[Rfam]
RNA sequence: AUGAAUGUUUUCUAGGGUUCCGCAAUUGAUACAAAUUGGUCAGGUCCGAGAGAAAACGCGCGGUUAUACGUGUACACGGAGGGACAAAAGCCCGGGAGGA
Numbered sequence: 001a002u003g004a005a006u007g008u009u010u011u012c013u014a015g016g017g018u019u020c021c022g023c024a025a026u027u028g029a030u031a032c033a034a035a036u037u038g039g040u041c042a043g044g045u046c047c048g049a050g051a052g053a054a055a056a057c058g059c060g061c062g063g064u065u066a067u068a069c070g071u072g073u074a075c076a077c078g079g080a081g082g083g084a085c086a087a088a089a090g091c092c093c094g095g096g097a098g099g100a
Base pairs, nucleotide, nucleotide: 007057008056009055010054011053012052015047016046020044021043022041023038024037025036026035027034058073059072060071061070062069075095077098081093082092083091
RNA: Guanidine-I riboswitch aptamer
Organism: Oceanobacillus halophilus